[Rfam]
Nucleotides: 077
Base pairs, nucleotide, nucleotide: 002072003071004070005069006068007067008066010065011064014061015060016056017055018054020052021051026043027042030039031038
Number, partner (000 for none) and nucleotide at each position: 001000a002072g003071c004070u005069g006068g007067u008066c009000u010065g011064a012000g013000u014061g015060u016056u017055g018054u019000g020052g021051g022000u023000u024000a025000u026043u027042g028000c029000u030039a031038a032000g033000c034000u035000g036000a037000u038031u039030u040000a041000a042027c043026a044000u045000u046000g047000u048000c049000u050000c051021c052020c053000a054018a055017c056016a057000a058000c059000c060015a061014u062000g063000c064011u065010u066008g067007a068006c069005u070004a071003g072002c073000a074000u075000a076000a077000a
Rfam assigns this 77-nucleotide RNA from Rhinopithecus roxellana to the family "Y RNA".
It is annotated as a non-coding RNA gene.
The match comes from Rfam's covariance-model search (46 bits).
Rfam 15.1 lists 26,986 matches to the family in 650 species.
About the family: Y RNAs are components of the Ro ribonucleoprotein particle (Ro RNP), in association with Ro60 and La proteins. The Y RNAs and Ro60 and La proteins are well conserved, but the function of the Ro RNP is not known. In humans the RNA component can be one of four small RNAs -- hY1, hY3, hY4 and hY5. These small RNAs are predicted to fold into a conserved secondary structure containing three stem structures.